[Rfam]
RNA sequence: AGUCUGUGAUGUGAUUUCAAGACGGGACUUACAAGAGAGUGAUUAGAAAUGAAAGACUGAGACU
Numbered sequence: 001a002g003u004c005u006g007u008g009a010u011g012u013g014a015u016u017u018c019a020a021g022a023c024g025g026g027a028c029u030u031a032c033a034a035g036a037g038a039g040u041g042a043u044u045a046g047a048a049a050u051g052a053a054a055g056a057c058u059g060a061g062a063c064u
Stems, first nucleotide, its partner, number of pairs: 001064004
RNA: Small nucleolar RNA sn668
Organism: Angiostrongylus costaricensis